[Rfam]
RNA sequence: UGGUAGAUGCACCCUGAUUGUCGCCCCCGGUCCCAAGCUGGGGGCUUUAUUA
Numbered sequence: 001u002g003g004u005a006g007a008u009g010c011a012c013c014c015u016g017a018u019u020g021u022c023g024c025c026c027c028c029g030g031u032c033c034c035a036a037g038c039u040g041g042g043g044g045c046u047u048u049a050u051u052a
Base pairs, nucleotide, nucleotide: 002013003012004011024044025043026042027041028040029039030038031037
The record is a 52-nucleotide RNA from Leptolyngbyaceae cyanobacterium JSC-12, which matches "Nitrogen stress-induced RNA 1" in Rfam. By type it is a small RNA. A reference for the family is Ionescu et al. (2010), "Heterocyst-specific transcription of NsiR1, a non-coding RNA encoded in a tandem array of direct repeats in cyanobacteria", J Mol Biol. The base pairs follow the family's consensus structure. The match comes from Rfam's covariance-model search (47 bits).